[Rfam]
RNA sequence: GGUUCUAUAGUGUAGCAGUUAUCAUGUCUGCUUUACAUGCAGAGGAUCCUGGGUUCGAGCCCCAGUGGAACCA
Numbered sequence: 001g002g003u004u005c006u007a008u009a010g011u012g013u014a015g016c017a018g019u020u021a022u023c024a025u026g027u028c029u030g031c032u033u034u035a036c037a038u039g040c041a042g043a044g045g046a047u048c049c050u051g052g053g054u055u056c057g058a059g060c061c062c063c064a065g066u067g068g069a070a071c072c073a
Stems, first nucleotide, its partner, number of pairs: 001072007010025003027043005049065005

This 73-nucleotide sequence from Nomascus leucogenys belongs to the Rfam family "tRNA". NCBI's taxonomy places the organism under Eukaryota, Teleostomi, Mammalia, Primates, Nomascus. Transfer RNA (tRNA) molecules are approximately 80 nucleotides in length. It is annotated as a transfer RNA.